[Rfam]
This 95-nucleotide RNA from Corynebacterium otitidis belongs to the Rfam family "Bacterial small signal recognition particle RNA".
The base pairs follow the family's consensus structure, which is taken from published work.
Clan: SRP clan.
The organism belongs to Corynebacterium otitidis, within Bacteria.
On this family, see Righetti et al., Proc Natl Acad Sci U S A 2016: "Temperature-responsive in vitro RNA structurome of Yersinia pseudotuberculosis".
By type it is a non-coding RNA gene.
A search with the family's covariance model found it, with a score of 65 bits.
RNA sequence: AUCGGAUCUCGCGCGGCGUGCAUCCCGUGAACUCCCCCAGGGCAGGAAUGCAGCAAGGGUCAACGGGCUCUCUCGGGUGCGCGGGGUCCUUCUUU
Numbered sequence: 001a002u003c004g005g006a007u008c009u010c011g012c013g014c015g016g017c018g019u020g021c022a023u024c025c026c027g028u029g030a031a032c033u034c035c036c037c038c039a040g041g042g043c044a045g046g047a048a049u050g051c052a053g054c055a056a057g058g059g060u061c062a063a064c065g066g067g068c069u070c071u072c073u074c075g076g077g078u079g080c081g082c083g084g085g086g087u088c089c090u091u092c093u094u095u
Base pairs, nucleotide, nucleotide: 004089005088006087007086008085009084010083011082012081013080014077017075018074020072024067025066026065027064028063034059035058036057042051043050044049